[Rfam]
RNA sequence: AUACUCCCUCCGUCCCAUAAUGUAAGACGUUUUUUGACACUAUGGUAAUGUUAAAAAAACGUCCUACAUUAUGGGACGGAGGGAGUAA
Number, nucleotide and partner (000 for none) at each position: 001a000002u000003a086004c085005u084006c000007c082008c081009u080010c079011c078012g000013u076014c075015c074016c073017a072018u000019a070020a069021u068022g067023u066024a065025a000026g063027a062028c061029g060030u059031u058032u057033u055034u054035u053036g052037a051038c050039a049040c000041u047042a000043u000044g000045g000046u000047a041048a000049u039050g038051u037052u036053a035054a034055a033056a000057a032058a031059a030060c029061g028062u027063c026064c000065u024066a023067c022068a021069u020070u019071a000072u017073g016074g015075g014076a013077c000078g011079g010080a009081g008082g007083g000084a005085g004086u003087a000088a000

The record is an 88-nucleotide RNA from Triticum aestivum, which matches "MIR1120/MIR1122 microRNA precursor family" in Rfam. A search with the family's covariance model found it, with a score of 86 bits. The base pairs follow the family's consensus structure, which was predicted with RNAalifold. For this family Rfam cites "Cloning and characterization of microRNAs from wheat (Triticum aestivum L.)" (Yao et al., Genome Biol, 2007).